A member of the RNA family "MIR1120/MIR1122 microRNA precursor family" from Triticum aestivum, 87 nucleotides long. It scores 89 bits against the family's covariance model. Lineage of the source: Eukaryota > Liliopsida > Pooideae > Triticodae > Triticum. Its family is annotated with RISC complex and miRNA-mediated post-transcriptional gene silencing in the Gene Ontology. On this family, see Yao et al., Genome Biol 2007: "Cloning and characterization of microRNAs from wheat (Triticum aestivum L.)". Rfam 15.1 lists 44,765 matches to the family in 8 species.
RNA sequence: AUACUCCCUCCGUCUUAUAAUGUAAGAUGUUUUUUGAUACUAUACUAGUGUCAAAGGACGUCUUACAUUAUGGGACGGAGGGAGUAU
Numbered sequence: 001a002u003a004c005u006c007c008c009u010c011c012g013u014c015u016u017a018u019a020a021u022g023u024a025a026g027a028u029g030u031u032u033u034u035u036g037a038u039a040c041u042a043u044a045c046u047a048g049u050g051u052c053a054a055a056g057g058a059c060g061u062c063u064u065a066c067a068u069u070a071u072g073g074g075a076c077g078g079a080g081g082g083a084g085u086a087u
Stems, first nucleotide, its partner, number of pairs: 003085003007081005013075005019069023